Overview:
Rfam assigns this 143-nucleotide sequence from Phyllostomus discolor to the family "small Cajal body-specific RNA 17". The literature on the family includes a 2004 paper in Curr Biol by Tycowski et al., "Guide RNAs with 5' Caps and Novel Box C/D snoRNA-like Domains for Modification of snRNAs in Metazoa". scaRNAs are a specific class of small nuclear RNAs which localise to the Cajal bodies and guide the modification of RNA polymerase II transcribed spliceosomal RNAs U1, U2, U4, U5 and U12. The complete human U12-22/U4-8 scaRNA is composed of two tandem C/D box domains (termed U12-22 and U4-8). It is annotated as a small Cajal body RNA.
[Rfam]
RNA sequence: CCCCCGGGUCCCGCUUGUGGCCCCCAGGAUGAGCCCGCAGUAUUUUCCUUAUAUGAUUGGGCCCUGUGGCUGGCGGCGCCGCUCGCCCGGAGCCUAAAAGGAUUAUGAGACCGCGCCUGGCGAAGUGGGGCCGGGAACCGGGG
Numbered sequence: 001c002c003c004c005c006g007g008g009u010c011c012c013g014c015u016u017g018u019g020g021c022c023c024c025c026a027g028g029a030u031g032a033g034c035c036c037g038c039a040g041u042a043u044u045u046u047c048c049u050u051a052u053a054u055g056a057u058u059g060g061g062c063c064c065u066g067u068g069g070c071u072g073g074c075g076g077c078g079c080c081g082c083u084c085g086c087c088c089g090g091a092g093c094c095u096a097a098a099a100g101g102a103u104u105a106u107g108a109g110a111c112c113g114c115g116c117c118u119g120g121c122g123a124a125g126u127g128g129g130g131c132c133g134g135g136a137a138c139c140g141g142g143g
Stems, first nucleotide, its partner, number of pairs: 001143003005140003009136005020131005057097006064090002069086002072083004